Shown here is a 583-nucleotide part of an RNA from Erysipelothrix inopinata, a member of the family "Bacterial small subunit ribosomal RNA". It scores 1577 bits against the family's covariance model. Its family is annotated with ribosome and structural constituent of ribosome in the Gene Ontology. The literature on the family includes a 2002 paper in BMC Bioinformatics by Cannone et al., "The comparative RNA web (CRW) site: an online database of comparative sequence and structure information for ribosomal, intron, and other RNAs".
RNA sequence: UGACGGGGGCCCGCACAAGCGGUGGAGUAUGUGGUUUAAUUCGAAGCAACGCGAAGAACCUUACCAGGUCUUGACAUACCGCGCAAAAGCAUAGAGAUAUGUAAUAGUUAUGGCGGUUACAGGUGGUGCAUGGUUGUCGUCAGCUCGUGUCGUGAGAUGUUGGGUUAAGUCCCGCAACGAGCGCAACCCUUGUCUUCAGUUACCAUCAUUAAGUUGGGGACUCUGGAGAGACUGCCGGUGAUAAACCGGAGGAAGGUGGGGAUGACGUCAAAUCAUCAUGCCCCUUAUGAUCUGGGCUACACACGUACUACAAUGGCGUAUACAGAGGGAAGCGAAGCAGUGAUGUGGAGCGAAUCUCAGAAAGUACGUCUCAGUUCGGAUUGGAGUCUGCAACUCGACUCCAUGAAGUCGGAAUCGCUAGUAAUCGCGGAUCAGCAUGCCGCGGUGAAUACGUUCUCGGGCCUUGUACACACCGCCCGUCAAACCAUGAGAGUUGGUAAUACCCGAAGCCGGUGGCCUAACCCUGUAAAGGGAGGGAGCCGUCGAAGGUAGGACCGAUGAUUGGGGUUAAGUCGUAACAAGG
Numbered sequence: 001u002g003a004c005g006g007g008g009g010c011c012c013g014c015a016c017a018a019g020c021g022g023u024g025g026a027g028u029a030u031g032u033g034g035u036u037u038a039a040u041u042c043g044a045a046g047c048a049a050c051g052c053g054a055a056g057a058a059c060c061u062u063a064c065c066a067g068g069u070c071u072u073g074a075c076a077u078a079c080c081g082c083g084c085a086a087a088a089g090c091a092u093a094g095a096g097a098u099a100u101g102u103a104a105u106a107g108u109u110a111u112g113g114c115g116g117u118u119a120c121a122g123g124u125g126g127u128g129c130a131u132g133g134u135u136g137u138c139g140u141c142a143g144c145u146c147g148u149g150u151c152g153u154g155a156g157a158u159g160u161u162g163g164g165u166u167a168a169g170u171c172c173c174g175c176a177a178c179g180a181g182c183g184c185a186a187c188c189c190u191u192g193u194c195u196u197c198a199g200u201u202a203c204c205a206u207c208a209u210u211a212a213g214u215u216g217g218g219g220a221c222u223c224u225g226g227a228g229a230g231a232c233u234g235c236c237g238g239u240g241a242u243a244a245a246c247c248g249g250a251g252g253a254a255g256g257u258g259g260g261g262a263u264g265a266c267g268u269c270a271a272a273u274c275a276u277c278a279u280g281c282c283c284c285u286u287a288u289g290a291u292c293u294g295g296g297c298u299a300c301a302c303a304c305g306u307a308c309u310a311c312a313a314u315g316g317c318g319u320a321u322a323c324a325g326a327g328g329g330a331a332g333c334g335a336a337g338c339a340g341u342g343a344u345g346u347g348g349a350g351c352g353a354a355u356c357u358c359a360g361a362a363a364g365u366a367c368g369u370c371u372c373a374g375u376u377c378g379g380a381u382u383g384g385a386g387u388c389u390g391c392a393a394c395u396c397g398a399c400u401c402c403a404u405g406a407a408g409u410c411g412g413a414a415u416c417g418c419u420a421g422u423a424a425u426c427g428c429g430g431a432u433c434a435g436c437a438u439g440c441c442g443c444g445g446u447g448a449a450u451a452c453g454u455u456c457u458c459g460g461g462c463c464u465u466g467u468a469c470a471c472a473c474c475g476c477c478c479g480u481c482a483a484a485c486c487a488u489g490a491g492a493g494u495u496g497g498u499a500a501u502a503c504c505c506g507a508a509g510c511c512g513g514u515g516g517c518c519u520a521a522c523c524c525u526g527u528a529a530a531g532g533g534a535g536g537g538a539g540c541c542g543u544c545g546a547a548g549g550u551a552g553g554a555c556c557g558a559u560g561a562u563u564g565g566g567g568u569u570a571a572g573u574c575g576u577a578a579c580a581a582g583g
Base pairs, nucleotide, nucleotide: 001470002469003467004466005465007464008463009462010461011460012459013458015454016453019418020417021416022415023414024311026309027308028307029306030305031304032303033302034300035299040055041054042053043052064295065294066293067292068291069290070289077119078118079116080115081114082113089102090101091100092099093098106111122284123283125282126281127280128279131278132277133273134272135271136269138267139266143182144181145180146179147178148177149158150157151156161174162173163172164171188261189260190259191258193229194228195227196226197225198224199223203218204217207216208215232252233251235249236248237247238246239245315370316369317368318367319366320365321364327358328357329356332351333350337346338345339344377408382403383402384401385400386399387398388397424446425445426444427443428442429441430440473582475579478575479574483569484568485567486566488564489563490562493559494558495557496556497555498554501551502550503549504548509544511542512541513540514539517537518536519535522533523532524531525530